The family of this 90-nucleotide RNA from Peribacillus faecalis is "Glycine riboswitch aptamer". Its Rfam clan is "Glycine riboswitch clan". The pairing is the family consensus, mapped onto this sequence. This family represents the bacterial glycine riboswitch. Lineage of the source: Bacteria > Bacillati > Bacilli > Bacillaceae > Peribacillus. Gene Ontology term of the family: glycine biosynthetic process.
RNA sequence: UUGAAGGCAGAGGGAGAGACUGUAUUAAAUUACAGCGCCGAAGGAGCAAACAUUAGUGAAUCUCUCAGGUAAAAGGACUUCUGCUGGACG
Numbered sequence: 001u002u003g004a005a006g007g008c009a010g011a012g013g014g015a016g017a018g019a020c021u022g023u024a025u026u027a028a029a030u031u032a033c034a035g036c037g038c039c040g041a042a043g044g045a046g047c048a049a050a051c052a053u054u055a056g057u058g059a060a061u062c063u064c065u066c067a068g069g070u071a072a073a074a075g076g077a078c079u080u081c082u083g084c085u086g087g088a089c090g
Stems, first nucleotide, its partner, number of pairs: 006085008020035004037070003040066002044064003050057002